[Rfam]
RNA sequence: GCGGACGUAGCUCAGUUGGUAGAGCGCAACCUUGCCAAGGUUGAGGUCGCGAGUUCGAGCCUCGUCGUCCGCU
Numbered sequence: 001g002c003g004g005a006c007g008u009a010g011c012u013c014a015g016u017u018g019g020u021a022g023a024g025c026g027c028a029a030c031c032u033u034g035c036c037a038a039g040g041u042u043g044a045g046g047u048c049g050c051g052a053g054u055u056c057g058a059g060c061c062u063c064g065u066c067g068u069c070c071g072c073u
Stems, first nucleotide, its partner, number of pairs: 001072007010025004027043005049065005